[Rfam]
Nucleotides: 081
Base pairs, nucleotide, nucleotide: 002080004078005077006076007075
Number, partner (000 for none) and nucleotide at each position: 001000u002080g003000u004078g005077g006076c007075c008000g009000u010000u011000g012000a013000u014000g015000a016000a017000u018000a019000a020000a021000g022000u023000u024000u025000u026000g027000c028000c029000u030000a031000c032000a033000u034000u035000g036000u037000c038000c039000g040000a041000u042000u043000g044000u045000u046000a047000u048000u049000u050000g051000u052000g053000a054000c055000g056000a057000g058000a059000a060000g061000a062000c063000u064000g065000a066000a067000g068000u069000u070000u071000c072000u073000g074000a075007g076006g077005c078004c079000u080002u081000u